Rfam assigns this 66-nucleotide sequence from Acetobacter senegalensis to the family "Fluoride riboswitch aptamer (crcB RNA motif)".
Pairs were carried over by alignment from the consensus structure, which is taken from published work.
[Rfam]
Nucleotides: 066
Stems, first nucleotide, its partner, number of pairs: 010026004016057006035047004
Number, partner (000 for none) and nucleotide at each position: 001000c002000g003000c004000g005000g006000c007000a008000c009000a010026g011025g012024g013023g014000a015000u016057g017056g018055g019054g020053u021052u022000c023013c024012c025011c026010c027000u028000u029000a030000u031000a032000a033000c034000c035047g036046c037045c038044c039000g040000c041000u042000c043000g044038g045037g046036g047035c048000u049000g050000a051000u052021g053020a054019c055018u056017c057016c058000u059000g060000c061000c062000g063000u064000u065000a066000u